Saccharopolyspora sRNA 350: a 508-nucleotide sequence.
On this family, see Liu et al., PLoS One 2013: "Prediction and characterization of small non-coding RNAs related to secondary metabolites in Saccharopolyspora erythraea".
The family's consensus secondary structure was predicted with RNAfold.
The family has 2 seed sequences and 1,170 matches in Rfam 15.1.

RNA sequence: UUGACGGUGUAGUCCCAUGCCAGUUCGUUGCCGUACAGCACCUCGUCGCCGAAGCGGUCGCCGUCGGCCAGCGUGUCGAGCACGGUCUGGUCGCCGUACUUGCCCUGCCCGAUCUUGUUCACCUUGCCGUGCGCGACGAGGAAGACCUCCUCGGCCGGGUCGCCCGAGGAGACCAGCACGUCGCCGGGCUGGAACUCGCGCUGCCGGAACCGGUCGGCCAACGCGACCAGCACGUCGUCCUCCGGGAAGUCGCGCAGGACGGGCAGUUCCCGCAGCUCCUGCGGGAUGACCCGGAUGUCGGCGCCGGUGCUGGUGAAGCUCACCCGCCCGUCACCGAGCGCGUAGGUGAGGCGGCGGUUGACCCGGUACGUGCCUGCCUGGGUGGUCACCCACGGCAGCUUGCGCAGCAGCCACCUCGGCGAGAUGCCCUGCAUCUGCGGGGUGGACUUGGUGGUGCUCGCCAGGUUCCGCGCGGCCGCGGUGCUCAGGCUGUGCCGCUGCUGCUCGA
Numbered sequence: 001u002u003g004a005c006g007g008u009g010u011a012g013u014c015c016c017a018u019g020c021c022a023g024u025u026c027g028u029u030g031c032c033g034u035a036c037a038g039c040a041c042c043u044c045g046u047c048g049c050c051g052a053a054g055c056g057g058u059c060g061c062c063g064u065c066g067g068c069c070a071g072c073g074u075g076u077c078g079a080g081c082a083c084g085g086u087c088u089g090g091u092c093g094c095c096g097u098a099c100u101u102g103c104c105c106u107g108c109c110c111g112a113u114c115u116u117g118u119u120c121a122c123c124u125u126g127c128c129g130u131g132c133g134c135g136a137c138g139a140g141g142a143a144g145a146c147c148u149c150c151u152c153g154g155c156c157g158g159g160u161c162g163c164c165c166g167a168g169g170a171g172a173c174c175a176g177c178a179c180g181u182c183g184c185c186g187g188g189c190u191g192g193a194a195c196u197c198g199c200g201c202u203g204c205c206g207g208a209a210c211c212g213g214u215c216g217g218c219c220a221a222c223g224c225g226a227c228c229a230g231c232a233c234g235u236c237g238u239c240c241u242c243c244g245g246g247a248a249g250u251c252g253c254g255c256a257g258g259a260c261g262g263g264c265a266g267u268u269c270c271c272g273c274a275g276c277u278c279c280u281g282c283g284g285g286a287u288g289a290c291c292c293g294g295a296u297g298u299c300g301g302c303g304c305c306g307g308u309g310c311u312g313g314u315g316a317a318g319c320u321c322a323c324c325c326g327c328c329c330g331u332c333a334c335c336g337a338g339c340g341c342g343u344a345g346g347u348g349a350g351g352c353g354g355c356g357g358u359u360g361a362c363c364c365g366g367u368a369c370g371u372g373c374c375u376g377c378c379u380g381g382g383u384g385g386u387c388a389c390c391c392a393c394g395g396c397a398g399c400u401u402g403c404g405c406a407g408c409a410g411c412c413a414c415c416u417c418g419g420c421g422a423g424a425u426g427c428c429c430u431g432c433a434u435c436u437g438c439g440g441g442g443u444g445g446a447c448u449u450g451g452u453g454g455u456g457c458u459c460g461c462c463a464g465g466u467u468c469c470g471c472g473c474g475g476c477c478g479c480g481g482u483g484c485u486c487a488g489g490c491u492g493u494g495c496c497g498c499u500g501c502u503g504c505u506c507g508a
Stems, first nucleotide, its partner, number of pairs: 006390004014382003019327001023324001025322001026318001028316002036312007045305001047303006054233001058229001060227001062225003065111003075103001077102004082097005117222003122217002127212001129210002132206001133204003138199001140197001143196002149192002154189003158185003162177001166173001234296003237290003241286002251281002254278001256277002261270002329342003351379001353377001356374002361371002391431002394428004399423003403418002407415001437476002440473001442471005447465006477507002480502003486497001488495001